[Rfam]
RNA sequence: CAUAAGGGGCCCAACAUGCGACUGCCCCGUGAGGCUCCGGCCCAAAGUCGCAUCCUUGAUCUAUGAAGGAUGUGCCAUG
Numbered sequence: 001c002a003u004a005a006g007g008g009g010c011c012c013a014a015c016a017u018g019c020g021a022c023u024g025c026c027c028c029g030u031g032a033g034g035c036u037c038c039g040g041c042c043c044a045a046a047g048u049c050g051c052a053u054c055c056u057u058g059a060u061c062u063a064u065g066a067a068g069g070a071u072g073u074g075c076c077a078u079g
Base pairs, nucleotide, nucleotide: 006028007027008026009025010024050073051072052071053070054069055068
RNA: chrB-a RNA
Organism: Roseovarius faecimaris